Overview: Shown here is a 74-nucleotide sequence from Xenopus laevis, a member of the family "mir-148/mir-152 microRNA precursor family". The family has 70 seed sequences and 1,272 matches in Rfam 15.1.
RNA sequence: UUGAGGUGAAGUUCUGUUUUACACUCCGGCUGUGAGUAAGUGGAAGUCAGUGCAUCACAGAACUUUGUCUCGAG
Numbered sequence: 001u002u003g004a005g006g007u008g009a010a011g012u013u014c015u016g017u018u019u020u021a022c023a024c025u026c027c028g029g030c031u032g033u034g035a036g037u038a039a040g041u042g043g044a045a046g047u048c049a050g051u052g053c054a055u056c057a058c059a060g061a062a063c064u065u066u067g068u069c070u071c072g073a074g
Base pairs, nucleotide, nucleotide: 004070005069006068007067008066009065010064011063012062013061014060015059016058022052023051024050025049028048029047030046031045
Dot-bracket structure: ...(((((((((((((.....((((..((((.............)))))))).....)))))))))))))....
The literature on the family includes a 2002 paper in Curr Biol by Lagos-Quintana et al., "Identification of tissue-specific microRNAs from mouse". The family's consensus secondary structure was predicted with RNAalifold. The source organism's lineage runs through Eukaryota, Bilateria, Vertebrata, Xenopodinae and Xenopus. Gene Ontology terms of the family: miRNA-mediated post-transcriptional gene silencing and RISC complex.